The family of this 580-nucleotide part of an RNA from Paragnathia formica is "Eukaryotic small subunit ribosomal RNA".
Taxonomically the source falls in Paragnathia (Eukaryota, Opisthokonta, Eumetazoa, Communostraca).
The family is grouped with related families in Rfam's "SSU clan".
The sequence is in the family's curated seed alignment.
The base pairs follow the family's consensus structure, which is taken from published work.
[Rfam]
RNA sequence: AACGUUGCUGCGGUUAAAAAGCUCGUAGUUGGACCUUAAGUGCGGACGGUCGAUUCACCCAUCGGAAUGCUAGCGGUCAAAGGAGUCAAAUCCGGAGGCCAAUAGCCUCGUUGGCUGAUAUCAACGGCCGAUUAUUCCGUCACUUGAUGAAGAUUUGUCGGUUUAUAUGUGUGUUGGGCACUCUCUCGGGUGUUCUAGCUCACGUGGCUGACAAUGUCACUUUGCAAAAAUGAGAACGAUUAAGGUAGGCUGAAUGCCAUGAAUAUUCAUGCAUAGUACGAGAGAAUAGGACUUUGUCUCUGUUUGGUGCACAGAAUGAUGAAGUAAUGAUUAAGAGAGACAGACGGGGACGUUCGUACUGCGGCGUUAGAGGUGAAAUUCUUGGAUCGCUGCAAGACGAACAAUCGCGAAGGCAUUCGUCCAGAACGCUUUUCUUAAUCAAGAACGAAAGUUAGAGGAUCGAAGGCGAUCAGAUACCGCCCUAGUUCUAACCGUAAACGAUGCUGACCGGCUAUUAGUCGGUGUUAUACCCAAACACACGAUUAGCAACCCCCGGGAAACCAGAGUCUUUGUGUUCCGG
Numbered sequence: 001a002a003c004g005u006u007g008c009u010g011c012g013g014u015u016a017a018a019a020a021g022c023u024c025g026u027a028g029u030u031g032g033a034c035c036u037u038a039a040g041u042g043c044g045g046a047c048g049g050u051c052g053a054u055u056c057a058c059c060c061a062u063c064g065g066a067a068u069g070c071u072a073g074c075g076g077u078c079a080a081a082g083g084a085g086u087c088a089a090a091u092c093c094g095g096a097g098g099c100c101a102a103u104a105g106c107c108u109c110g111u112u113g114g115c116u117g118a119u120a121u122c123a124a125c126g127g128c129c130g131a132u133u134a135u136u137c138c139g140u141c142a143c144u145u146g147a148u149g150a151a152g153a154u155u156u157g158u159c160g161g162u163u164u165a166u167a168u169g170u171g172u173g174u175u176g177g178g179c180a181c182u183c184u185c186u187c188g189g190g191u192g193u194u195c196u197a198g199c200u201c202a203c204g205u206g207g208c209u210g211a212c213a214a215u216g217u218c219a220c221u222u223u224g225c226a227a228a229a230a231u232g233a234g235a236a237c238g239a240u241u242a243a244g245g246u247a248g249g250c251u252g253a254a255u256g257c258c259a260u261g262a263a264u265a266u267u268c269a270u271g272c273a274u275a276g277u278a279c280g281a282g283a284g285a286a287u288a289g290g291a292c293u294u295u296g297u298c299u300c301u302g303u304u305u306g307g308u309g310c311a312c313a314g315a316a317u318g319a320u321g322a323a324g325u326a327a328u329g330a331u332u333a334a335g336a337g338a339g340a341c342a343g344a345c346g347g348g349g350a351c352g353u354u355c356g357u358a359c360u361g362c363g364g365c366g367u368u369a370g371a372g373g374u375g376a377a378a379u380u381c382u383u384g385g386a387u388c389g390c391u392g393c394a395a396g397a398c399g400a401a402c403a404a405u406c407g408c409g410a411a412g413g414c415a416u417u418c419g420u421c422c423a424g425a426a427c428g429c430u431u432u433u434c435u436u437a438a439u440c441a442a443g444a445a446c447g448a449a450a451g452u453u454a455g456a457g458g459a460u461c462g463a464a465g466g467c468g469a470u471c472a473g474a475u476a477c478c479g480c481c482c483u484a485g486u487u488c489u490a491a492c493c494g495u496a497a498a499c500g501a502u503g504c505u506g507a508c509c510g511g512c513u514a515u516u517a518g519u520c521g522g523u524g525u526u527a528u529a530c531c532c533a534a535a536c537a538c539a540c541g542a543u544u545a546g547c548a549a550c551c552c553c554c555g556g557g558a559a560a561c562c563a564g565a566g567u568c569u570u571u572g573u574g575u576u577c578c579g580g
Base pairs, nucleotide, nucleotide: 011579012578013577019576021446023444024443028439029438030437337433338432339431340430341428345424348422349421350420351419352418355399356398360394361393362392363391364390365389366388370381371380372379407414408413451492452491453490454489455488456487461485465481466480467479468478503575504574506568507567508566510551511550515546516545517544518543519542520541521540524538525537555562556561